[Rfam]
RNA sequence: UGGAGCAAUGAUGACUGCUGUGACAUAUGGGACCUACAGGAUUAAUCCCUGUCCGGAACGCUGAGGUCCAG
Numbered sequence: 001u002g003g004a005g006c007a008a009u010g011a012u013g014a015c016u017g018c019u020g021u022g023a024c025a026u027a028u029g030g031g032a033c034c035u036a037c038a039g040g041a042u043u044a045a046u047c048c049c050u051g052u053c054c055g056g057a058a059c060g061c062u063g064a065g066g067u068c069c070a071g
Base pairs, nucleotide, nucleotide: 002069003068004067006065
The family of this 71-nucleotide sequence from Camelus dromedarius is "Small nucleolar RNA SNORD113/SNORD114 family". The imprinted human domain at 14q32 contains two clusters of tandemly repeated small nucleolar RNAs named 14q(I) and 14q(II) snoRNAs. These two clusters are named SNORD113 and SNORD114 respectively in the HGNC approved gene symbol nomenclature. The snoRNAs found in both clusters are clearly related and are represented here by a single family. The source organism's lineage runs through Eukaryota, Metazoa, Deuterostomia, Camelidae and Camelus. For this family Rfam cites "Identification of tandemly-repeated C/D snoRNA genes at the imprinted human 14q32 domain reminiscent of those at the Prader-Willi/Angelman syndrome region" (Cavaille et al., Hum Mol Genet, 2002). By type it is a C/D-box small nucleolar RNA. The family is grouped with related families in Rfam's "SNORD74 clan".